[Rfam]
RNA sequence: AGAUCGGCGCGGACGGAGUCCUCGCCAACCUGGUCAGGGCCGAGAGGCAGCAGCCACAACGAGAUCACCUCUGGGUCGUCUGCCGGUCUCCAC
Numbered sequence: 001a002g003a004u005c006g007g008c009g010c011g012g013a014c015g016g017a018g019u020c021c022u023c024g025c026c027a028a029c030c031u032g033g034u035c036a037g038g039g040c041c042g043a044g045a046g047g048c049a050g051c052a053g054c055c056a057c058a059a060c061g062a063g064a065u066c067a068c069c070u071c072u073g074g075g076u077c078g079u080c081u082g083c084c085g086g087u088c089u090c091c092a093c
Base pairs, nucleotide, nucleotide: 004086005085006084007083008082009079010078011077012076014074015071017070018068019067021063022062023061024060031056032055033054034053039048040047041046
Dot-bracket structure: ...(((((((((.((.(((.((((......((((....(((....)))....))))...))))...)).))..).))))..))))).......
Description
This 93-nucleotide RNA from Caulobacter vibrioides belongs to the Rfam family "Bacterial small signal recognition particle RNA". It is one of the family's seed sequences. The organism belongs to Caulobacter, within Bacteria. Gene Ontology terms of the family: SRP-dependent cotranslational protein targeting to membrane, signal sequence recognition and signal recognition particle, plasma membrane targeting. Rfam classes the family as a non-coding RNA gene.